[Rfam]
RNA sequence: AGAGCAUCUGUGAUGUGCUUCCUCUACAUUCAUCCUUGCACUUUGAGCUAAGGUUUACCAGUGAAGAAAGCAUUGGGGCUAAUAUUCUGAUGCUC
Numbered sequence: 001a002g003a004g005c006a007u008c009u010g011u012g013a014u015g016u017g018c019u020u021c022c023u024c025u026a027c028a029u030u031c032a033u034c035c036u037u038g039c040a041c042u043u044u045g046a047g048c049u050a051a052g053g054u055u056u057a058c059c060a061g062u063g064a065a066g067a068a069a070g071c072a073u074u075g076g077g078g079c080u081a082a083u084a085u086u087c088u089g090a091u092g093c094u095c
Stems, first nucleotide, its partner, number of pairs: 002095007
RNA: Small nucleolar RNA snoR26
Organism: Triticum aestivum